[Rfam]
This 58-nucleotide sequence belongs to the Rfam family "msiK RNA".
Rfam's curators put it in the seed alignment.

RNA sequence: AAGAGGCACUCGUCACAACGGAUCGUCCGGCACGUACCUGCCGGUGAAGGAGUAGAAA
Number, nucleotide and partner (000 for none) at each position: 001a000002a000003g000004a000005g000006g000007c000008a000009c000010u050011c049012g000013u047014c046015a045016c000017a000018a000019c000020g000021g000022a000023u000024c000025g000026u000027c044028c043029g042030g041031c040032a039033c000034g000035u000036a000037c000038c000039u032040g031041c030042c029043g028044g027045u015046g014047a013048a000049g011050g010051a000052g000053u000054a000055g000056a000057a000058a000